[Rfam]
RNA: Small nucleolar RNA SNORA5
Organism: Nyctereutes procyonoides
RNA sequence: UGCAGUCAAGUCAAAUUCAGCUCCCAUUCCCGUCAUAGUGGGUGCUGGCCCAGAUGGCUGCCACAGCAAGCCCUGCAGUUCAUGGGCCCUGGGUCCUCUGCACUGGGACCUGGGGAUAAGUUUGGCUGCAGACAGGG
Numbered sequence: 001u002g003c004a005g006u007c008a009a010g011u012c013a014a015a016u017u018c019a020g021c022u023c024c025c026a027u028u029c030c031c032g033u034c035a036u037a038g039u040g041g042g043u044g045c046u047g048g049c050c051c052a053g054a055u056g057g058c059u060g061c062c063a064c065a066g067c068a069a070g071c072c073c074u075g076c077a078g079u080u081c082a083u084g085g086g087c088c089c090u091g092g093g094u095c096c097u098c099u100g101c102a103c104u105g106g107g108a109c110c111u112g113g114g115g116a117u118a119a120g121u122u123u124g125g126c127u128g129c130a131g132a133c134a135g136g137g
Stems, first nucleotide, its partner, number of pairs: 002061004018047004023042006075129006087115003091111002